[Rfam]
RNA sequence: CAAAUCGCGGUGGGAGAGUCCCGGACUUCACAGGGCCCGCCACACCCACUAGGCUGGCCCACCGGGCGCCGAAGGAGCAAACCCUCCCCGGGAAUCUCUCAGGCAAACGUACCGCCGCGACUAG
Number, nucleotide and partner (000 for none) at each position: 001c000002a000003a000004a000005u000006c119007g118008c117009g116010g115011u114012g113013g112014g000015a000016g000017a000018g000019u000020c066021c065022c064023g063024g000025a000026c000027u000028u000029c000030a000031c000032a000033g000034g000035g000036c000037c000038c000039g000040c000041c000042a000043c000044a000045c000046c000047c000048a000049c000050u000051a000052g000053g000054c000055u000056g000057g000058c000059c000060c000061a000062c000063c023064g022065g021066g020067c000068g104069c103070c102071g100072a099073a000074g000075g098076a097077g096078c000079a000080a000081a000082c090083c000084c000085u000086c000087c000088c000089c000090g082091g000092g000093a000094a000095u000096c077097u076098c075099u072100c071101a000102g070103g069104c068105a000106a000107a000108c000109g000110u000111a000112c013113c012114g011115c010116c009117g008118c007119g006120a000121c000122u000123a000124g000

The record is a 124-nucleotide sequence from Rarobacter incanus, which matches "Glycine riboswitch aptamer" in Rfam. NCBI's taxonomy places the organism under Bacteria, Bacillati, Actinomycetota, Actinomycetes, Rarobacter.